Shown here is a 68-nucleotide RNA from Oryctolagus cuniculus, a member of the family "Small nucleolar RNA SNORD2". The base pairs follow the family's consensus structure, which was predicted with WAR. The family has 17 seed sequences and 1,116 matches in Rfam 15.1. A reference for the family is Zhou et al. (2004), "Identification of a novel box C/D snoRNA from mouse nucleolar cDNA library", Gene. The source organism's lineage runs through Eukaryota, Gnathostomata, Dipnotetrapodomorpha, Theria and Oryctolagus.
RNA sequence: AAAUGAAAUGAUGGCAAUCAUCUUUCAGGACUGACCUGAAAUGACAGAAUACUCAUUGCUGAUCACUU
Numbered sequence: 001a002a003a004u005g006a007a008a009u010g011a012u013g014g015c016a017a018u019c020a021u022c023u024u025u026c027a028g029g030a031c032u033g034a035c036c037u038g039a040a041a042u043g044a045c046a047g048a049a050u051a052c053u054c055a056u057u058g059c060u061g062a063u064c065a066c067u068u
Base pairs, nucleotide, nucleotide: 001068002067004065005064006063